[Rfam]
RNA sequence: UGUCUCCUCCACCUUCUCCAAUGGUGGAUUUAGCCCCCGGAUCGCAAAAUCCGGGGGCUUUUUU
Numbered sequence: 001u002g003u004c005u006c007c008u009c010c011a012c013c014u015u016c017u018c019c020a021a022u023g024g025u026g027g028a029u030u031u032a033g034c035c036c037c038c039g040g041a042u043c044g045c046a047a048a049a050u051c052c053g054g055g056g057g058c059u060u061u062u063u064u
Stems, first nucleotide, its partner, number of pairs: 008028006034057008
A member of the RNA family "Betaproteobacteria toxic small RNA" from Ramlibacter humi, 64 nucleotides long. The family's consensus secondary structure was predicted with WAR. Taxonomically the source falls in Ramlibacter (Bacteria, Pseudomonadota, Burkholderiales, Comamonadaceae). A reference for the family is Kimelman et al. (2012), "A vast collection of microbial genes that are toxic to bacteria", Genome Res.